[Rfam]
Rfam assigns this 69-nucleotide sequence from Podospora comata to the family "bZIP non canonical Hac1/Xbp1 intron". On this family, see Hooks and Griffiths-Jones, RNA Biol 2011: "Conserved RNA structures in the non-canonical Hac1/Xbp1 intron". It is annotated as a small RNA.
Nucleotides: 069
Stems, first nucleotide, its partner, number of pairs: 001069005008062004019037006045057003
Number, partner (000 for none) and nucleotide at each position: 001069c002068u003067u004066c005065c006000c007000c008062c009061g010060a011059u012000g013000c014000g015000a016000c017000a018000c019037a020036a021035c022034a023033u024032c025000c026000u027000g028000c029000u030000g031000a032024g033023a034022u035021g036020u037019u038000g039000u040000g041000c042000c043000a044000a045057g046056a047055c048000c049000u050000g051000c052000a053000g054000u055047g056046u057045c058000g059011g060010u061009c062008g063000g064000c065005g066004g067003a068002a069001g